[Rfam]
RNA: ZMP/ZTP riboswitch aptamer (pfl RNA motif)
RNA sequence: UGAAUCUGUCGCAACUGGCGAACAGGUGGGAUGACCACCGGGGAGCGAAAUAGGGUUGUCGCGGUCGCCCGCCUGGGCCACGCAA
Dot-bracket structure: ....(.(.((((..(([[[[.....((((.....))))..))..)))).).)..........((((...]]]]..))))......